[Rfam]
RNA sequence: GUCAGAUGAUUUGAAUCCGUGCACUGAUGCUCUGUGAAGGUGUGAAAUAAUAGCAUGUUAGAGUUCUGAUGACA
Number, nucleotide and partner (000 for none) at each position: 001g073002u072003c071004a070005g000006a000007u000008g000009a000010u000011u000012u000013g000014a000015a000016u000017c000018c000019g000020u000021g000022c000023a000024c000025u000026g000027a000028u000029g000030c000031u000032c000033u000034g000035u000036g000037a000038a000039g000040g000041u000042g000043u000044g000045a000046a000047a000048u000049a000050a000051u000052a000053g000054c000055a000056u000057g000058u000059u000060a000061g000062a000063g000064u000065u000066c000067u000068g000069a000070u004071g003072a002073c001074a000

About this RNA: This 74-nucleotide RNA from Cricetulus griseus belongs to the Rfam family "Small nucleolar RNA SNORD28". The base pairs follow the family's consensus structure, which was predicted with PFOLD. Taxonomically the source falls in Cricetulus (Eukaryota, Opisthokonta, Gnathostomata, Mammalia). Gene Ontology terms of the family: nucleolus and RNA processing. A search with the family's covariance model found it, with a score of 83 bits.